Mammalian CPEB3 ribozyme: a 75-nucleotide sequence from Alligator sinensis. It scores 43 bits against the family's covariance model.

RNA sequence: GUUGUAAAUCUGAGGCCAUAACAGAAGUGCUCCUGGUGUUGCCUGUCAGAUUCCAGAGAAUCUGCAAAUUCUACU
Dot-bracket structure: .............[[[...(..(((((((.......))).]]]...(((((((....)))))))....))))..)